Annotation
Rfam assigns this 114-nucleotide RNA from Austrofundulus limnaeus to the family "Potassium channel RNA editing signal". NCBI's taxonomy places the organism under Eukaryota, Opisthokonta, Metazoa, Eumetazoa, Austrofundulus. Gene Ontology term of the family: adenosine to inosine editing. Pairs were carried over by alignment from the consensus structure, which is taken from published work.
[Rfam]
RNA sequence: GUUGGUUAUGGAGACAUUUAUCCACAAACACUGCUAGGCAAGAUUGUAGGAGGGCUCUGCUGUAUAGCAGGUGUGUUAGUCAUUGCUCUUCCCAUUCCAAUUAUCGUCAACAAC
Numbered sequence: 001g002u003u004g005g006u007u008a009u010g011g012a013g014a015c016a017u018u019u020a021u022c023c024a025c026a027a028a029c030a031c032u033g034c035u036a037g038g039c040a041a042g043a044u045u046g047u048a049g050g051a052g053g054g055c056u057c058u059g060c061u062g063u064a065u066a067g068c069a070g071g072u073g074u075g076u077u078a079g080u081c082a083u084u085g086c087u088c089u090u091c092c093c094a095u096u097c098c099a100a101u102u103a104u105c106g107u108c109a110a111c112a113a114c
Stems, first nucleotide, its partner, number of pairs: 001114002004111001008107004013102002020095002037077004049063001051061001